[Rfam]
RNA sequence: AACGUGCUCCGGGGUCGGUGAAAGUCCGAGCCGGCGGUGACAGUCCGCGACCCGCGUCCCUCACAGGAGGCGGCUGAGCCGGUGGAAUUCCGGCACCGACGGUUAAAGUCCGGAUGGGAGGCGCACGGU
Numbered sequence: 001a002a003c004g005u006g007c008u009c010c011g012g013g014g015u016c017g018g019u020g021a022a023a024g025u026c027c028g029a030g031c032c033g034g035c036g037g038u039g040a041c042a043g044u045c046c047g048c049g050a051c052c053c054g055c056g057u058c059c060c061u062c063a064c065a066g067g068a069g070g071c072g073g074c075u076g077a078g079c080c081g082g083u084g085g086a087a088u089u090c091c092g093g094c095a096c097c098g099a100c101g102g103u104u105a106a107a108g109u110c111c112g113g114a115u116g117g118g119a120g121g122c123g124c125a126c127g128g129u
Base pairs, nucleotide, nucleotide: 003127004126005125006124007123009121010120016028017027018026030109031108032098033097034048035047036046037045043096044095052073053072078094079093080092081091082090100112101111102110